Description
The family of this 200-nucleotide RNA from Aegilops tauschii is "MIR1435 microRNA precursor family". The base pairs follow the family's consensus structure, which was predicted with RNAalifold. NCBI's taxonomy places the organism under Eukaryota, Viridiplantae, Magnoliopsida, Triticinae, Aegilops tauschii. Gene Ontology terms of the family: RISC complex and miRNA-mediated post-transcriptional gene silencing.

RNA sequence: AGAUUUUUGUAAAAGUCAAACUUUGCCAACUUUGACCAAGUGUUUAGAGAAAACUGUCUACAUCUACAAUACCAAACAUGUACAUUCUGAAAAUAUAACUCACGAUGUAUCGAAUGAUGUGUAUUUGGUAUUGUAGAUGUACCUACUUUUCUCUAUAAACAUGAUCAAAGUUUGUAAUGUUUGACUUUUGUAAAAAUCUA
Numbered sequence: 001a002g003a004u005u006u007u008u009g010u011a012a013a014a015g016u017c018a019a020a021c022u023u024u025g026c027c028a029a030c031u032u033u034g035a036c037c038a039a040g041u042g043u044u045u046a047g048a049g050a051a052a053a054c055u056g057u058c059u060a061c062a063u064c065u066a067c068a069a070u071a072c073c074a075a076a077c078a079u080g081u082a083c084a085u086u087c088u089g090a091a092a093a094u095a096u097a098a099c100u101c102a103c104g105a106u107g108u109a110u111c112g113a114a115u116g117a118u119g120u121g122u123a124u125u126u127g128g129u130a131u132u133g134u135a136g137a138u139g140u141a142c143c144u145a146c147u148u149u150u151c152u153c154u155a156u157a158a159a160c161a162u163g164a165u166c167a168a169a170g171u172u173u174g175u176a177a178u179g180u181u182u183g184a185c186u187u188u189u190g191u192a193a194a195a196a197u198c199u200a
Stems, first nucleotide, its partner, number of pairs: 005195005011189011023177004031169005045155008055145002059141010072128005